The record is a 67-nucleotide sequence from Ahniella affigens, which matches "int-alpA RNA" in Rfam. Rfam classes the family as a small RNA.
RNA sequence: ACCACGGCUAGGCCGGCCAGCUGAAAACGGGAAACCUUCACUCGCUGCCGUGGUGAACCAUGAAGGG
Numbered sequence: 001a002c003c004a005c006g007g008c009u010a011g012g013c014c015g016g017c018c019a020g021c022u023g024a025a026a027a028c029g030g031g032a033a034a035c036c037u038u039c040a041c042u043c044g045c046u047g048c049c050g051u052g053g054u055g056a057a058c059c060a061u062g063a064a065g066g067g
Base pairs, nucleotide, nucleotide: 001054002053003052004051005050006049007048008047011022012021013020028044029043030042031041035067036066037065038064
Rfam 15.1 lists 577 matches to the family in 491 species. About the family: Acidobacteria (1 example), Planctomycetes (1 example), Proteobacteria.